The family of this 76-nucleotide sequence from Vibrio navarrensis is "Group II catalytic intron D1-D4-1".
[Rfam]
RNA sequence: CUAAUGCAAUAGUGAUGUUGUGUGAUGGGCAUAAGAAGUCAGCAGAGGGCAUAGUACCUAAGAUUUAGGGAAGGCC
Numbered sequence: 001c002u003a004a005u006g007c008a009a010u011a012g013u014g015a016u017g018u019u020g021u022g023u024g025a026u027g028g029g030c031a032u033a034a035g036a037a038g039u040c041a042g043c044a045g046a047g048g049g050c051a052u053a054g055u056a057c058c059u060a061a062g063a064u065u066u067a068g069g070g071a072a073g074g075c076c
Base pairs, nucleotide, nucleotide: 002025004023005022006021007020008019009018010017011016039046040045048076049075050074057069058068059067060066061065

NCBI's taxonomy places the organism under Bacteria, Pseudomonadati, Pseudomonadota, Vibrionales, Vibrio. The base pairs follow the family's consensus structure.